[Rfam]
The family of this 179-nucleotide sequence from Tatumella ptyseos is "GcvB RNA". The organism belongs to Tatumella ptyseos, within Bacteria. Rfam describes the family as follows. The gcvB gene encodes a small untranslated RNA involved in expression of the dipeptide and oligopeptide transport systems in Escherichia coli. Gene Ontology terms of the family: regulation of gene expression and mRNA binding. For this family Rfam cites "Temperature-responsive in vitro RNA structurome of Yersinia pseudotuberculosis" (Righetti et al., Proc Natl Acad Sci U S A, 2016).

RNA sequence: ACUUCCUGAGCCGGAACGAAAAGUUUUCUGAACCAGUCAUUUCAGACUCUUUUGGCUUUAGGUGGUGAUGUUGUGUUUGCAUUUGGUCUGUUUUUCAGACCUGAUUUAUUUCCUGUGAUAUACCCUGUCUGUCCAUAGUUUAUAUUUUUACAGCACCGCUUUAUGCGGUGUUUUUUUUU
Dot-bracket structure: ........((((..((....(((..(.(((((..(....)))))))..)))))))))...........................((((((.....))))))...............((.(........................).).)..((((((((.....)))))))).......